[Rfam]
RNA: SAH (S-adenosyl-L-homocysteine) riboswitch aptamer
RNA sequence: CAGCUCAAGGAGCGCUGCAGCUACGGACCUCUCCCGUAGUCAGGCUUGAGAUGUCCCCAACCGCGCUCACCCGGA
Numbered sequence: 001c002a003g004c005u006c007a008a009g010g011a012g013c014g015c016u017g018c019a020g021c022u023a024c025g026g027a028c029c030u031c032u033c034c035c036g037u038a039g040u041c042a043g044g045c046u047u048g049a050g051a052u053g054u055c056c057c058c059a060a061c062c063g064c065g066c067u068c069a070c071c072c073g074g075a
Base pairs, nucleotide, nucleotide: 002052004050005049006048007047008046021039022038023037024036025035026034